[Rfam]
Rfam assigns this 84-nucleotide RNA from Thalassobacillus cyri to the family "tRNA". It scores 61 bits against the family's covariance model. By type it is a transfer RNA. Rfam's curators write: Transfer RNA (tRNA) molecules are approximately 80 nucleotides in length.
Nucleotides: 084
Base pairs, nucleotide, nucleotide: 001083002082003081004080005079006078007077010026011025012024028044029043030042031041032040060076061075062074063073064072
Number, partner (000 for none) and nucleotide at each position: 001083g002082g003081c004080g005079a006078a007077g008000u009000g010026g011025u012024g013000g014000a015000a016000u017000u018000g019000g020000c021000a022000g023000a024012c025011a026010c027000g028044c029043u030042u031041g032040a033000c034000u035000c036000a037000a038000a039000a040032u041031c042030a043029a044028g045000u046000g047000c048000c049000u050000u051000c052000c053000c054000g055000g056000g057000c058000g059000u060076g061075u062074g063073g064072g065000u066000u067000c068000g069000a070000g071000u072064c073063c074062c075061a076060c077007c078006u079005u080004c081003g082002c083001c084000a